[Rfam]
Annotation: The record is a 92-nucleotide RNA sequence from Durio zibethinus, which matches "Small nucleolar RNA snoR27" in Rfam. The family's RNA type in Rfam is C/D-box small nucleolar RNA. A reference for the family is Brown et al. (2001), "Multiple snoRNA gene clusters from Arabidopsis", RNA. A search with the family's covariance model found it, with a score of 71 bits.

RNA sequence: AUUGGAUCCAUGAUGCCACUUUACAAACUGCGUUAUCUAUCUGAAUUUCCUUUCUAAGGGAUUGAAGAUAUUGUUUCAUGCUGAGAUCCAUU
Number, nucleotide and partner (000 for none) at each position: 001a092002u000003u090004g089005g088006a087007u086008c000009c000010a000011u000012g000013a000014u000015g000016c000017c000018a000019c000020u000021u000022u000023a000024c000025a000026a000027a000028c000029u000030g000031c000032g000033u000034u000035a000036u000037c000038u000039a000040u000041c000042u000043g000044a000045a000046u000047u000048u000049c000050c000051u000052u000053u000054c000055u000056a000057a000058g000059g000060g000061a000062u000063u000064g000065a000066a000067g000068a000069u000070a000071u000072u000073g000074u000075u000076u000077c000078a000079u000080g000081c000082u000083g000084a000085g000086a007087u006088c005089c004090a003091u000092u001

Source information:
The source organism's lineage runs through Eukaryota, Gunneridae, malvids, Malvaceae and Durio.